[Rfam]
Record summary:
Shown here is a 114-nucleotide RNA from Gouania willdenowi, a member of the family "Potassium channel RNA editing signal". It is annotated as a cis-regulatory element. Rfam links the family to the GO term adenosine to inosine editing. A search with the family's covariance model found it, with a score of 100 bits. NCBI's taxonomy places the organism under Eukaryota, Eumetazoa, Craniata, Blenniimorphae, Gouania.
RNA sequence: CUGGGCUAUGGAGAUAUGUAUCCUGAGACAUGGUCCGGGAUGUUGGUGGGAGCGCUGUGUGCCUUGGCUGGUGUGCUAACCAUUGCUAUGCCUGUACCAGUCAUCGUCAACAAC
Numbered sequence: 001c002u003g004g005g006c007u008a009u010g011g012a013g014a015u016a017u018g019u020a021u022c023c024u025g026a027g028a029c030a031u032g033g034u035c036c037g038g039g040a041u042g043u044u045g046g047u048g049g050g051a052g053c054g055c056u057g058u059g060u061g062c063c064u065u066g067g068c069u070g071g072u073g074u075g076c077u078a079a080c081c082a083u084u085g086c087u088a089u090g091c092c093u094g095u096a097c098c099a100g101u102c103a104u105c106g107u108c109a110a111c112a113a114c
Stems, first nucleotide, its partner, number of pairs: 002113001004111001008107004013102003018097004037077002040074001049063002
Dot-bracket structure: .(.(...((((.(((..((((...............((.(........((...........))..........).))................))))..))).))))...).).